[Rfam]
Nucleotides: 058
Base pairs, nucleotide, nucleotide: 001052002051003050004049005048006047007046008045009044010043011042012041013040014039015038019034020033021032022031023030
Number, partner (000 for none) and nucleotide at each position: 001052a002051a003050g004049g005048a006047g007046c008045a009044a010043a011042a012041a013040c014039c015038a016000a017000u018000u019034u020033c021032u022031u023030g024000u025000u026000c027000u028000a029000u030023c031022a032021a033020g034019a035000a036000a037000u038015u039014g040013g041012u042011u043010u044009u045008u046007g047006c048005u049004c050003c051002u052001u053000u054000a055000u056000u057000u058000u